[Rfam]
RNA sequence: GCAGGAUUGACGUCGGGUGGUCCCGGCUGCCGGCUUCAAACCGGUAGACGACGUGAGUCGUAGGCGUUCGAUUCGUCCUAUCCUGC
Numbered sequence: 001g002c003a004g005g006a007u008u009g010a011c012g013u014c015g016g017g018u019g020g021u022c023c024c025g026g027c028u029g030c031c032g033g034c035u036u037c038a039a040a041c042c043g044g045u046a047g048a049c050g051a052c053g054u055g056a057g058u059c060g061u062a063g064g065c066g067u068u069c070g071a072u073u074c075g076u077c078c079u080a081u082c083c084u085g086c
Stems, first nucleotide, its partner, number of pairs: 001086007009078001012027006028046006048061005063077004
Dot-bracket structure: (((((((.(..((((((....))))))((((((.......)))))).(((((....))))).((((.......))))).)))))))

Shown here is an 86-nucleotide RNA sequence from Jimgerdemannia flammicorona, a member of the family "Selenocysteine transfer RNA". Rfam links the family to the GO term triplet codon-amino acid adaptor activity. The match comes from Rfam's covariance-model search (73 bits). A reference for the family is Mizutani and Goto (2000), "Eukaryotic selenocysteine tRNA has the 9/4 secondary structure", FEBS Lett.